[Rfam]
RNA: Streptomyces RNA 6106
RNA sequence: ACGCCGUCCUGAACGGCGUUCACGGCCUUGACCGGGCCCGUGAGGCGGGGGUGGUGCCGUGUCGGCGCAGCACCACCCCCGCAGC
Numbered sequence: 001a002c003g004c005c006g007u008c009c010u011g012a013a014c015g016g017c018g019u020u021c022a023c024g025g026c027c028u029u030g031a032c033c034g035g036g037c038c039c040g041u042g043a044g045g046c047g048g049g050g051g052u053g054g055u056g057c058c059g060u061g062u063c064g065g066c067g068c069a070g071c072a073c074c075a076c077c078c079c080c081g082c083a084g085c
Stems, first nucleotide, its partner, number of pairs: 001019007020043006026036003045082013059068003